This 95-nucleotide sequence from Enterococcus canis belongs to the Rfam family "SAM riboswitch aptamer (S box leader)". Gene Ontology term of the family: regulation of gene expression. Lineage of the source: Bacteria > Bacillati > Bacillota > Lactobacillales > Enterococcus.
[Rfam]
RNA sequence: UACCUAUAAAGAGAAACCGAGAGAUCAGGCUCUAUGACGUUUCAGCAACCUGCUAAUGCAAGGUGCUCCAUCCUGCCGCAACGGAAAGAUAGGAG
Numbered sequence: 001u002a003c004c005u006a007u008a009a010a011g012a013g014a015a016a017c018c019g020a021g022a023g024a025u026c027a028g029g030c031u032c033u034a035u036g037a038c039g040u041u042u043c044a045g046c047a048a049c050c051u052g053c054u055a056a057u058g059c060a061a062g063g064u065g066c067u068c069c070a071u072c073c074u075g076c077c078g079c080a081a082c083g084g085a086a087a088g089a090u091a092g093g094a095g
Stems, first nucleotide, its partner, number of pairs: 001095001003093005013043005021032003026075004044067004049063002051060003071087001076084003